Rfam assigns this 78-nucleotide RNA sequence from Octodon degus to the family "Small nucleolar RNA SNORD47". It is annotated as a C/D-box small nucleolar RNA. On this family, see Galardi et al., Mol Cell Biol 2002: "Purified box C/D snoRNPs are able to reproduce site-specific 2'-O-methylation of target RNA in vitro". Rfam links the family to the GO terms nucleolus and RNA processing. Lineage of the source: Eukaryota > Metazoa > Sarcopterygii > Glires > Octodon. It scores 88 bits against the family's covariance model.
RNA sequence: AACCAAUGAUGUGAUGAUUCUGUCAAAUGAAAUAAAGUGAUAUCAUUUAUAAAACCAAUCCAUUUUGAUUCUGAGGUU
Number, nucleotide and partner (000 for none) at each position: 001a078002a077003c076004c075005a000006a000007u000008g000009a000010u000011g000012u000013g000014a000015u000016g000017a000018u000019u000020c000021u000022g000023u000024c000025a000026a000027a000028u000029g000030a000031a000032a000033u000034a000035a000036a000037g000038u000039g000040a000041u000042a000043u000044c000045a000046u000047u000048u000049a000050u000051a000052a000053a000054a000055c000056c000057a000058a000059u000060c000061c000062a000063u000064u000065u000066u000067g000068a000069u000070u000071c000072u000073g000074a000075g004076g003077u002078u001